[Rfam]
RNA sequence: UCCUUAUCAAGAGCGGUGGAGGGACUGGCCCUAUAAAACCCAGCAACCAACAUAUUUUAUGUAAGGUGCUAAUUCCAGAGUGGUAAUUUUGUUACCCGAAGAUGAGAA
Dot-bracket structure: (.((((((....(.(((...(((.[[[[)))......))))((((.((.(((.......)))..))))))...(]]]]...(((((.....)))))...))))))).)
Numbered sequence: 001u002c003c004u005u006a007u008c009a010a011g012a013g014c015g016g017u018g019g020a021g022g023g024a025c026u027g028g029c030c031c032u033a034u035a036a037a038a039c040c041c042a043g044c045a046a047c048c049a050a051c052a053u054a055u056u057u058u059a060u061g062u063a064a065g066g067u068g069c070u071a072a073u074u075c076c077a078g079a080g081u082g083g084u085a086a087u088u089u090u091g092u093u094a095c096c097c098g099a100a101g102a103u104g105a106g107a108a
Stems, first nucleotide, its partner, number of pairs: 001108001003106006013041001015040003021031003025078004042070004047066002050062003074100001082096005
SAM riboswitch aptamer (S box leader): a 108-nucleotide RNA from Clostridiaceae bacterium 14S0207. It scores 82 bits against the family's covariance model. Pairs were carried over by alignment from the consensus structure, which is taken from published work. Lineage of the source: Bacteria > Bacillati > Bacillota > Eubacteriales > Clostridiaceae.